Shown here is a 128-nucleotide RNA from Sapajus apella, a member of the family "Small nucleolar RNA SNORA40". Rfam classes the family as an H/ACA-box small nucleolar RNA. Pairs were carried over by alignment from the consensus structure, which was predicted with RNAalifold. The snoRNA ACA 40 belongs to the H/ACA family of snoRNAs and guides the pseudouridylation of 28S rRNA subunit at position U4565. NB This family has a high threshold value to exclude a large number of closely related sequences that do not appear to have conserved H and ACA boxes, and may be pseudogenes.
RNA sequence: UGUACUUAAGUAUGUUUUAGUUUAACGUGUGGACAAAGACUUAUGGAUAGGUGCAAAAAACAAAUCCUUUUUUGCAAGCCAGAAUGCAUUGUUCAGCAUGAUUUUUGAUAUGUAUAAGAAGGAAUAUU
Dot-bracket structure: ((((((((..(..(((((.((....(....).)).)))))....)..))))))))........((.((.(((((.....(((((..(((........)))..))))).......))))).)).))...
Rfam links the family to the GO terms nucleolus and RNA processing. A search with the family's covariance model found it, with a score of 111 bits.